[Rfam]
RNA sequence: AGGCAGCCCCCUUUUCUUAAUAUUAUAAUGAAAAGGGCGGUGUUAAUCUGCUCGGAAAUCAAUCAAUCUUUUGCUCUUCAGAUUUGCUGAGAUUGCUCAUCUUUGAAGCUGGUCUAGUAAGCUCAAGUACAUU
Numbered sequence: 001a002g003g004c005a006g007c008c009c010c011c012u013u014u015u016c017u018u019a020a021u022a023u024u025a026u027a028a029u030g031a032a033a034a035g036g037g038c039g040g041u042g043u044u045a046a047u048c049u050g051c052u053c054g055g056a057a058a059u060c061a062a063u064c065a066a067u068c069u070u071u072u073g074c075u076c077u078u079c080a081g082a083u084u085u086g087c088u089g090a091g092a093u094u095g096c097u098c099a100u101c102u103u104u105g106a107a108g109c110u111g112g113u114c115u116a117g118u119a120a121g122c123u124c125a126a127g128u129a130c131a132u133u
Base pairs, nucleotide, nucleotide: 002044003043004042005041007040008039009037010036011035012034013033014032015031016030068127069126070125073122074121075120080115081114082113083112084111086109087108088107091101092100093099
The family of this 133-nucleotide RNA sequence from Camellia sinensis is "Small nucleolar RNA snoR77". The base pairs follow the family's consensus structure, which was predicted with WAR. A search with the family's covariance model found it, with a score of 123 bits. A reference for the family is Marker et al. (2002), "Experimental RNomics: identification of 140 candidates for small non-messenger RNAs in the plant Arabidopsis thaliana", Curr Biol.